[Rfam]
Nucleotides: 084
Base pairs, nucleotide, nucleotide: 008078009077010076011075012074014072015071016070018068020066021065022064024062025061026060027059029057034052035051036050039047040046
Number, partner (000 for none) and nucleotide at each position: 001000u002000u003000a004000a005000c006000c007000c008078a009077a010076a011075u012074u013000a014072g015071u016070a017000u018068g019000g020066a021065g022064u023000g024062g025061g026060a027059a028000a029057g030000u031000u032000u033000g034052u035051u036050c037000a038000c039047g040046u041000u042000u043000g044000c045000c046040g047039c048000u049000a050036g051035g052034g053000g054000c055000g056000c057029u058000g059027u060026u061025c062024c063000a064022a065021c066020u067000g068018c069000a070016u071015a072014c073000a074012a075011a076010u077009u078008u079000g080000a081000g082000u083000u084000a